[Rfam]
RNA sequence: UUUUAUUUUCAGCCUGAUAUAGCGGAUAAUCGUCCGCCGGUUUGCAUCGGCAACUCAGGAGAGUAAAUGAUC
Numbered sequence: 001u002u003u004u005a006u007u008u009u010c011a012g013c014c015u016g017a018u019a020u021a022g023c024g025g026a027u028a029a030u031c032g033u034c035c036g037c038c039g040g041u042u043u044g045c046a047u048c049g050g051c052a053a054c055u056c057a058g059g060a061g062a063g064u065a066a067a068u069g070a071u072c
Stems, first nucleotide, its partner, number of pairs: 036051006

Overview
The record is a 72-nucleotide RNA sequence from Erwinia sp. OLSSP12, which matches "PyrD leader" in Rfam. For this family Rfam cites "Conformational heterogeneity in the Salmonella typhimurium pyrC and pyrD leader mRNAs produced in vivo" (Sorensen, Nucleic Acids Res, 1994). Rfam classes the family as a cis-regulatory leader. Its family is annotated with regulation of gene expression in the Gene Ontology. NCBI's taxonomy places the organism under Bacteria, Pseudomonadati, Pseudomonadota, Enterobacterales, Erwinia.